[Rfam]
RNA sequence: UGGUGCUUGCUGGCUGUAACAGCAACUCCAUGUGGAAGCGCUCAGGGUUCCAGUGGAGCUGCUGUUACCUGCAGACAGACG
Numbered sequence: 001u002g003g004u005g006c007u008u009g010c011u012g013g014c015u016g017u018a019a020c021a022g023c024a025a026c027u028c029c030a031u032g033u034g035g036a037a038g039c040g041c042u043c044a045g046g047g048u049u050c051c052a053g054u055g056g057a058g059c060u061g062c063u064g065u066u067a068c069c070u071g072c073a074g075a076c077a078g079a080c081g
Stems, first nucleotide, its partner, number of pairs: 010074003016068008026058006033052003
The family of this 81-nucleotide RNA sequence from Scleropages formosus is "mir-194 microRNA precursor family". The source organism's lineage runs through Eukaryota, Opisthokonta, Eumetazoa, Neopterygii and Scleropages. Gene Ontology terms of the family: miRNA-mediated post-transcriptional gene silencing and RISC complex. Pairs were carried over by alignment from the consensus structure, which was predicted with RNAalifold.